[Rfam]
Nucleotides: 231
Base pairs, nucleotide, nucleotide: 005088006087007086008085009084010083011082012081013080014079015078016077017076020043021042022041023040026037027036028035047054048053057069058068059067060066091229092228094226098219099218100217101216102215103214107195108194109193110192111191112190113189114188115187116186117185118183120152121151122150123149127144128143129142130141131140156180157179158178160177161176162175163174164173197207198206199205
Number, partner (000 for none) and nucleotide at each position: 001000g002000a003000g004000u005088u006087a007086c008085c009084g010083u011082g012081g013080g014079u015078g016077g017076c018000a019000a020043g021042g022041u023040u024000a025000a026037c027036c028035u029000a030000u031000g032000u033000a034000u035028g036027g037026g038000g039000g040023a041022g042021c043020c044000g045000a046000a047054g048053c049000g050000a051000a052000a053048g054047c055000g056000a057069g058068u059067c060066u061000g062000a063000a064000u065000a066060g067059g068058g069057c070000g071000u072000a073000u074000g075000a076017g077016u078015u079014g080013c081012c082011u083010g084009c085008g086007g087006u088005a089000g090000a091229c092228c093000c094226g095000a096000a097000g098219c099218c100217g101216g102215g103214u104000g105000a106000u107195c108194u109193a110192u111191c112190c113189a114188u115187g116186g117185g118183c119000a120152g121151g122150c123149u124000g125000a126000a127144g128143c129142g130141g131140g132000a133000g134000u135000a136000a137000g138000a139000c140131c141130c142129c143128g144127u145000g146000a147000a148000g149123g150122g151121c152120c153000g154000a155000a156180c157179c158178c159000a160177c161176u162175c163174u164173g165000g166000u167000u168000g169000a170000a171000a172000a173164c174163a175162g176161a177160g178158g179157g180156g181000a182000u183118g184000a185117c186116c187115u188114g189113u190112g191111g192110a193109u194108a195107g196000g197207g198206g199205u200000g201000a202000a203000a204000g205199g206198c207197c208000a209000a210000u211000c212000a213000a214103a215102c216101c217100c218099g219098g220000u221000g222000a223000u224000a225000g226094c227000u228092g229091g230000u231000u